[Rfam]
RNA sequence: CUGCGUUAAGGAUUGUAGUGAAAAUCCUUUUGCUCGCUGAGCUUGUCGAAGCGCAAAAGAUUGAAACGGAAAGCCUGGCCGAAG
Numbered sequence: 001c002u003g004c005g006u007u008a009a010g011g012a013u014u015g016u017a018g019u020g021a022a023a024a025u026c027c028u029u030u031u032g033c034u035c036g037c038u039g040a041g042c043u044u045g046u047c048g049a050a051g052c053g054c055a056a057a058a059g060a061u062u063g064a065a066a067c068g069g070a071a072a073g074c075c076u077g078g079c080c081g082a083a084g
Stems, first nucleotide, its partner, number of pairs: 009076003013072002018067002023062004029057005036052003